About this RNA
The record is a 197-nucleotide RNA sequence from Hansenula anomala, which matches "Small nucleolar RNA snR8" in Rfam.
[Rfam]
RNA sequence: CUUUUCUUUGAUACGAACGCGUUCUAUUCACUGCAUCAUUAUUGUAAUUUGUUUGAUGAAUGGAGGGGAAAAGAACGCCAGAGCAAUUUUAUUGUCGAACACGACCUCAUACCCAGUAAUGUCUAUUCAAAUUAGUCCUUUUUGGAACUUUUUUGAAACUACCGCAUUUUUUUGGUAACUGCGUUUUCGAUAUAUUC
Numbered sequence: 001c002u003u004u005u006c007u008u009u010g011a012u013a014c015g016a017a018c019g020c021g022u023u024c025u026a027u028u029c030a031c032u033g034c035a036u037c038a039u040u041a042u043u044g045u046a047a048u049u050u051g052u053u054u055g056a057u058g059a060a061u062g063g064a065g066g067g068g069a070a071a072a073g074a075a076c077g078c079c080a081g082a083g084c085a086a087u088u089u090u091a092u093u094g095u096c097g098a099a100c101a102c103g104a105c106c107u108c109a110u111a112c113c114c115a116g117u118a119a120u121g122u123c124u125a126u127u128c129a130a131a132u133u134a135g136u137c138c139u140u141u142u143u144g145g146a147a148c149u150u151u152u153u154u155g156a157a158a159c160u161a162c163c164g165c166a167u168u169u170u171u172u173u174g175g176u177a178a179c180u181g182c183g184u185u186u187u188c189g190a191u192a193u194a195u196u197c
Stems, first nucleotide, its partner, number of pairs: 019078002022075002031065002034062002037058005094191005101184003112175002115171002118168004123164001

Background:
Its Rfam clan is "SNORA56 clan". Gene Ontology terms of the family: RNA processing and nucleolus. The family's RNA type in Rfam is H/ACA-box small nucleolar RNA.